[Rfam]
RNA sequence: UAUGAACCACGCGGGAGCUCGGAGUUGGCGCGAAAAGACUCUGCCGGGCUGAGAGGGCGUUCCAGAAGACGCCGACCGCUGAACCUGUCCGGGUAAUUCCGGCGUAGGGAGUUUUUGGCGAUGUCGU
Numbered sequence: 001u002a003u004g005a006a007c008c009a010c011g012c013g014g015g016a017g018c019u020c021g022g023a024g025u026u027g028g029c030g031c032g033a034a035a036a037g038a039c040u041c042u043g044c045c046g047g048g049c050u051g052a053g054a055g056g057g058c059g060u061u062c063c064a065g066a067a068g069a070c071g072c073c074g075a076c077c078g079c080u081g082a083a084c085c086u087g088u089c090c091g092g093g094u095a096a097u098u099c100c101g102g103c104g105u106a107g108g109g110a111g112u113u114u115u116u117g118g119c120g121a122u123g124u125c126g127u
Stems, first nucleotide, its partner, number of pairs: 006115001009112002011079004017049005056073005084108004089102004